[Rfam]
Shown here is a 77-nucleotide RNA from Amphiprion percula, a member of the family "mir-460 microRNA precursor family".
RNA sequence: CGUUGAGGCCUCCUCAUUGUGCAUGCUGUGUGUAUUUCUAUGUACCACACAGCGCCUGCAAUGUGGAGGCUGAGACG
Numbered sequence: 001c002g003u004u005g006a007g008g009c010c011u012c013c014u015c016a017u018u019g020u021g022c023a024u025g026c027u028g029u030g031u032g033u034a035u036u037u038c039u040a041u042g043u044a045c046c047a048c049a050c051a052g053c054g055c056c057u058g059c060a061a062u063g064u065g066g067a068g069g070c071u072g073a074g075a076c077g
Stems, first nucleotide, its partner, number of pairs: 012066002015063007024054001026052006
Gene Ontology terms of the family: miRNA-mediated post-transcriptional gene silencing and RISC complex. Rfam 15.1 lists 1,029 matches to the family in 498 species. Pairs were carried over by alignment from the consensus structure, which was predicted with RNAalifold.